[Rfam]
RNA sequence: CCCGAUAAAGGCAAACCCUGAGCGAUCAGGAGACGCAAAGUAAAGGGUCUUUAAACUACAGGGAGGUAGAAUAAAAGAUAGCCUUACUGCCGAGA
Numbered sequence: 001c002c003c004g005a006u007a008a009a010g011g012c013a014a015a016c017c018c019u020g021a022g023c024g025a026u027c028a029g030g031a032g033a034c035g036c037a038a039a040g041u042a043a044a045g046g047g048u049c050u051u052u053a054a055a056c057u058a059c060a061g062g063g064a065g066g067u068a069g070a071a072u073a074a075a076a077g078a079u080a081g082c083c084u085u086a087c088u089g090c091c092g093a094g095a
Stems, first nucleotide, its partner, number of pairs: 003092002011036002017030005034081001039088004044084003047079006

The family of this 95-nucleotide sequence from a Patescibacteria group bacterium is "c-di-GMP-I-GGC riboswitch aptamer". NCBI's taxonomy places the organism under Bacteria, Bacteria candidate phyla. The family has 40 seed sequences and 1,298 matches in Rfam 15.1. Clan: c-di-GMP_I riboswitch clan.